RNA: Glutamine riboswitch aptamer (glnA leader)
Organism: Romeriopsis navalis
Nucleotides: 114
Base pairs, nucleotide, nucleotide: 003110004109005108006107007106009050010049011048012047013046014045015044016043017042018041019040020039053111059101060100061099
Number, partner (000 for none) and nucleotide at each position: 001000c002000u003110c004109g005108u006107u007106c008000a009050u010049c011048c012047a013046g014045g015044u016043u017042u018041c019040u020039a021000c022000u023000c024000a025000a026000u027000c028000a029000a030000a031000u032000c033000a034000u035000c036000g037000a038000a039020u040019a041018g042017g043016a044015a045014u046013u047012u048011g049010g050009a051000c052000g053111g054000a055000a056000g057000u058000a059101a060100g061099a062000a063000u064000u065000g066000c067000g068000g069000u070000g071000c072000u073000c074000a075000c076000a077000c078000u079000u080000u081000u082000c083000a084000c085000c086000g087000a088000g089000u090000a091000c092000c093000g094000g095000g096000u097000u098000u099061u100060c101059u102000g103000a104000a105000g106007g107006a108005a109004c110003g111053c112000g113000c114000c